[Rfam]
RNA sequence: AUCACCUGGGGAUCUUGUUAAAUGAGAUUCUGGUUCGGUAGGAAUGGGGCCUGAGAUUCUGCAUUUCUAACAAGUUCUCAGGUGAUGCCAC
Dot-bracket structure: ..(((...(((..(((((((((.((((.(((......................))).))).)..)).))))))).)))...))).......
The family of this 91-nucleotide RNA sequence from Bos taurus is "mir-544 microRNA precursor family". Lineage of the source: Eukaryota > Mammalia > Boreoeutheria > Laurasiatheria > Bos.